A member of the RNA family "Small nucleolar RNA SNORD77" from Sciurus vulgaris, 67 nucleotides long. It scores 72 bits against the family's covariance model. Rfam links the family to the GO terms RNA processing and nucleolus. U77 belongs to the C/D family of snoRNAs. It is predicted to guide 2'O-ribose methylation of large 28S rRNA subunit at position A1521. The C/D snoRNAs U44, U47, U74, U75, U76, U78, U79, U80 and U81 share the same host gene as U77 (non-coding). The family's RNA type in Rfam is C/D-box small nucleolar RNA.
RNA sequence: AUACGAUGAUGGUUGCAUAGUUCAGCAGAUUUAAAUCAUGAAGACAUUAACCACUUCUGAUGUAUCU
Dot-bracket structure: ((((.(((((..((((........))))......))))).......(.....)........))))..
Numbered sequence: 001a002u003a004c005g006a007u008g009a010u011g012g013u014u015g016c017a018u019a020g021u022u023c024a025g026c027a028g029a030u031u032u033a034a035a036u037c038a039u040g041a042a043g044a045c046a047u048u049a050a051c052c053a054c055u056u057c058u059g060a061u062g063u064a065u066c067u
Stems, first nucleotide, its partner, number of pairs: 001065004006039005013028004047053001